This 140-nucleotide RNA sequence from Betta splendens belongs to the Rfam family "U4 spliceosomal RNA". About the family: U4 small nuclear RNA (U4 snRNA) is a component of the major U2-dependent spliceosome.

[Rfam]
RNA sequence: AUCCUUUUGCAGUGUCAGUAUUGUAGCCUAUGAGGGUUAUCAUGGCGUGAUUAUUGCUAUUUGAAAACCUUACUCAAUACCCUGCCUUGACAAUUUGAAAUAUGGUCAGCUAUGGCUAUUUUUGAUGAUCUUUAGGGAGA
Number, nucleotide and partner (000 for none) at each position: 001a000002u000003c000004c000005u000006u000007u000008u000009g000010c000011a000012g000013u000014g000015u000016c000017a000018g000019u000020a051021u050022u049023g048024u047025a000026g046027c045028c044029u000030a000031u000032g000033a000034g041035g040036g000037u000038u000039a000040u035041c034042a000043u000044g028045g027046c026047g024048u023049g022050a021051u020052u000053a000054u000055u000056g000057c000058u000059a000060u000061u000062u000063g000064a000065a000066a000067a000068c000069c000070u000071u000072a000073c000074u000075c000076a000077a000078u000079a000080c000081c000082c000083u000084g116085c115086c114087u112088u000089g110090a000091c000092a000093a106094u105095u104096u000097g000098a000099a000100a000101u000102a000103u000104g095105g094106u093107c000108a000109g000110c089111u000112a087113u000114g086115g085116c084117u000118a000119u000120u000121u000122u000123u000124g000125a000126u000127g000128a000129u140130c139131u138132u137133u000134a000135g000136g000137g132138a131139g130140a129
It scores 71 bits against the family's covariance model. Rfam classes the family as a spliceosomal small nuclear RNA.